[Rfam]
RNA sequence: GACAACAAAGAUGAAUAAUUACUCUAUAUCGUUGAAUGCGGAUAUGAUCGCACUAAAUGAACAUCUAAGGGACUGAGUUGUU
Numbered sequence: 001g002a003c004a005a006c007a008a009a010g011a012u013g014a015a016u017a018a019u020u021a022c023u024c025u026a027u028a029u030c031g032u033u034g035a036a037u038g039c040g041g042a043u044a045u046g047a048u049c050g051c052a053c054u055a056a057a058u059g060a061a062c063a064u065c066u067a068a069g070g071g072a073c074u075g076a077g078u079u080g081u082u
Stems, first nucleotide, its partner, number of pairs: 002081005
RNA: Small nucleolar RNA SNORD25
Organism: Taxus chinensis